[Rfam]
RNA sequence: GGGAGGAACAACCCCAGUGGCUGCGGCAGCUCUGCAGCCCUGGAGUCAGCCCCCGCAGUAACUUCGGGGGGCUCGGUCUGCAGGGCCUGGAGGCUCCGGGGCGGG
Numbered sequence: 001g002g003g004a005g006g007a008a009c010a011a012c013c014c015c016a017g018u019g020g021c022u023g024c025g026g027c028a029g030c031u032c033u034g035c036a037g038c039c040c041u042g043g044a045g046u047c048a049g050c051c052c053c054c055g056c057a058g059u060a061a062c063u064u065c066g067g068g069g070g071g072c073u074c075g076g077u078c079u080g081c082a083g084g085g086c087c088u089g090g091a092g093g094c095u096c097c098g099g100g101g102c103g104g105g
Base pairs, nucleotide, nucleotide: 002097003096004095005094009089010088012085013084014083019078020077021076022075023074025072030069031068032067033066034065036063040058041057042056
This 105-nucleotide sequence from Vulpes vulpes belongs to the Rfam family "mir-8834 microRNA precursor family". Pairs were carried over by alignment from the consensus structure, which was predicted with RNAalifold. It scores 57 bits against the family's covariance model.